[Rfam]
RNA: Small nucleolar RNA SNORA31
Nucleotides: 135
Stems, first nucleotide, its partner, number of pairs: 002063007012053002017049004023041005077127005085118001088115004093109005
Number, partner (000 for none) and nucleotide at each position: 001000a002063u003062g004061c005060a006059u007058c008057u009000a010000c011000u012053u013052g014000a015000c016000a017049g018048a019047c020046c021000u022000g023041g024040a025039g026038c027037a028000u029000g030000u031000g032000a033000c034000c035000a036000u037027u038026g039025c040024u041023u042000c043000u044000c045000u046020g047019g048018u049017c050000c051000u052013c053012a054000c055000u056000a057008g058007g059006a060005u061004g062003c063002a064000a065000g066000a067000g068000u069000a070000a071000a072000a073000c074000u075000g076000u077127u078126c079125c080124u081123u082000g083000c084000g085118c086000u087000u088115u089114c090113u091112g092000c093109c094108u095107g096106u097105c098000a099000g100000c101000c102000u103000g104000u105097g106096g107095c108094a109093g110000u111000c112091c113090a114089g115088a116000u117000u118085g119000a120000a121000u122000a123081a124080a125079g126078g127077a128000a129000u130000a131000u132000a133000a134000c135000u